[Rfam]
Nucleotides: 131
Base pairs, nucleotide, nucleotide: 009121010120011119012118013117014116015115016114022108023107024106025105026104027103028102029101030100031099032098033097048086049085053080054079056077060073061072062071063070
Number, partner (000 for none) and nucleotide at each position: 001000a002000u003000a004000a005000u006000g007000c008000a009121c010120a011119u012118u013117a014116a015115u016114u017000a018000u019000c020000c021000c022108u023107a024106g025105g026104g027103c028102c029101a030100u031099g032098g033097g034000a035000u036000a037000a038000a039000a040000a041000a042000u043000u044000a045000c046000c047000c048086u049085g050000c051000a052000a053080a054079a055000a056077c057000a058000a059000g060073u061072u062071a063070g064000c065000a066000c067000a068000u069000c070063c071062u072061a073060g074000a075000a076000c077056g078000g079054u080053u081000c082000u083000a084000g085049c086048a087000c088000g089000a090000u091000u092000a093000c094000u095000a096000a097033c098032c099031u100030a101029u102028g103027g104026c105025u106024c107023u108022a109000a110000u111000a112000c113000a114016a115015g116014u117013u118012g119011a120010u121009g122000g123000g124000a125000a126000a127000c128000a129000c130000c131000c